[Rfam]
Rfam assigns this 143-nucleotide RNA from Kyrpidia spormannii to the family "FMN riboswitch aptamer (RFN element)". Gene Ontology term of the family: FMN binding. The family's consensus secondary structure is taken from published work. A search with the family's covariance model found it, with a score of 100 bits. On this family, see Serganov et al., Nature 2009: "Coenzyme recognition and gene regulation by a flavin mononucleotide riboswitch".
RNA sequence: GAAUUCCUUCAGGGCAGGGUGAGGGGCAACCCAAUUCCCGACCGGUGGUGACGUCGACAAGGCGAAGUCCACGAGCGGUUGAGUCCGCAGGAACCGGUGAAAGUCCGGUACCGACGGUAUAGUCCGGAUGGGAGAAGGAACAG
Numbered sequence: 001g002a003a004u005u006c007c008u009u010c011a012g013g014g015c016a017g018g019g020u021g022a023g024g025g026g027c028a029a030c031c032c033a034a035u036u037c038c039c040g041a042c043c044g045g046u047g048g049u050g051a052c053g054u055c056g057a058c059a060a061g062g063c064g065a066a067g068u069c070c071a072c073g074a075g076c077g078g079u080u081g082a083g084u085c086c087g088c089a090g091g092a093a094c095c096g097g098u099g100a101a102a103g104u105c106c107g108g109u110a111c112c113g114a115c116g117g118u119a120u121a122g123u124c125c126g127g128a129u130g131g132g133a134g135a136a137g138g139a140a141c142a143g
Base pairs, nucleotide, nucleotide: 004140005139006138007137008136009135010134017039018038019037041123042122043113044112045072046071047070048069067111068110075088076087077086093109094108095107096106097105115126116125117124